[Rfam]
RNA sequence: AUUCAUUCAGCUCUGGCAAUAACACAGGUCCAGUGUAUGCUUGGUGGAUUUUCAAGCAAGAGAAGGGGAUGGCCUUCCUAAUGCACAGCAGACCUGCCCCAAAGUGGCUUCUCUGUUCCCAAGAGUACAUCAGCU
Numbered sequence: 001a002u003u004c005a006u007u008c009a010g011c012u013c014u015g016g017c018a019a020u021a022a023c024a025c026a027g028g029u030c031c032a033g034u035g036u037a038u039g040c041u042u043g044g045u046g047g048a049u050u051u052u053c054a055a056g057c058a059a060g061a062g063a064a065g066g067g068g069a070u071g072g073c074c075u076u077c078c079u080a081a082u083g084c085a086c087a088g089c090a091g092a093c094c095u096g097c098c099c100c101a102a103a104g105u106g107g108c109u110u111c112u113c114u115g116u117u118c119c120c121a122a123g124a125g126u127a128c129a130u131c132a133g134c135u
Base pairs, nucleotide, nucleotide: 002067003066004065006064007063008062011060012056014054015053018042019041022038024036025035075125076124077123079121083118090114091113092112096108097107098106

A member of the RNA family "Small nucleolar RNA SNORA64/SNORA10 family" from Neotoma lepida, 135 nucleotides long. For this family Rfam cites "Nucleolar localization signals of box H/ACA small nucleolar RNAs" (Narayanan et al., EMBO J, 1999). About the family: This family belongs to the H/ACA class of small nucleolar RNAs (snoRNAs) which act as guides in the the modification of uridines to pseudouridines. This family includes the human snoRNAs U64 and ACA10 and mouse MBI-29. Rfam links the family to the GO terms nucleolus and RNA processing. It is annotated as an H/ACA-box small nucleolar RNA.